[Rfam]
RNA sequence: UAAAAGGGUGUUUGCCGCUUCGAUGGCACGUGGGCUGGGGUUUCGGCUCCGGUCCGCGGGGUAUGGCCAUCAAGACAUACCCAACACGUAAUUUUUAGAGCAGAGAGGCUGUUGGCUACCCUCAUGUACCGGCGCCUCC
Numbered sequence: 001u002a003a004a005a006g007g008g009u010g011u012u013u014g015c016c017g018c019u020u021c022g023a024u025g026g027c028a029c030g031u032g033g034g035c036u037g038g039g040g041u042u043u044c045g046g047c048u049c050c051g052g053u054c055c056g057c058g059g060g061g062u063a064u065g066g067c068c069a070u071c072a073a074g075a076c077a078u079a080c081c082c083a084a085c086a087c088g089u090a091a092u093u094u095u096u097a098g099a100g101c102a103g104a105g106a107g108g109c110u111g112u113u114g115g116c117u118a119c120c121c122u123c124a125u126g127u128a129c130c131g132g133c134g135c136c137u138c139c
Stems, first nucleotide, its partner, number of pairs: 008087005013028005029058012059082007106137004111133005117128003